Overview
Rfam assigns this 86-nucleotide RNA from Balearica regulorum to the family "Selenocysteine transfer RNA". The base pairs follow the family's consensus structure, which is taken from published work.

RNA sequence: GCCCGGAGGACCCUUGGUGGGCUGGGGUGCAGACUUCAAAUCUGUAGCUGCCUAGCGGCAAAGGGGUUCAUUUCCACCUUUCAGGU
Numbered sequence: 001g002c003c004c005g006g007a008g009g010a011c012c013c014u015u016g017g018u019g020g021g022c023u024g025g026g027g028u029g030c031a032g033a034c035u036u037c038a039a040a041u042c043u044g045u046a047g048c049u050g051c052c053u054a055g056c057g058g059c060a061a062a063g064g065g066g067u068u069c070a071u072u073u074c075c076a077c078c079u080u081u082c083a084g085g086u
Base pairs, nucleotide, nucleotide: 001086002085003084005082006081007080008079009078012027013026014025015024016023017022028046029045030044031043032042033041049060050059051058052057063077065075066074